[Rfam]
RNA sequence: GGGAGUGUUUGCACCGCUGGUGCGGGCCCGGGUCUUCAAAACCCGUGGAGGGUGUGAACAACGCCCUCAGUCGGUUCGAUUCCGAUACACUCCC
Numbered sequence: 001g002g003g004a005g006u007g008u009u010u011g012c013a014c015c016g017c018u019g020g021u022g023c024g025g026g027c028c029c030g031g032g033u034c035u036u037c038a039a040a041a042c043c044c045g046u047g048g049a050g051g052g053u054g055u056g057a058a059c060a061a062c063g064c065c066c067u068c069a070g071u072c073g074g075u076u077c078g079a080u081u082c083c084g085a086u087a088c089a090c091u092c093c094c
Stems, first nucleotide, its partner, number of pairs: 001094008011027002014025004029045005048068005071085004
RNA: Selenocysteine transfer RNA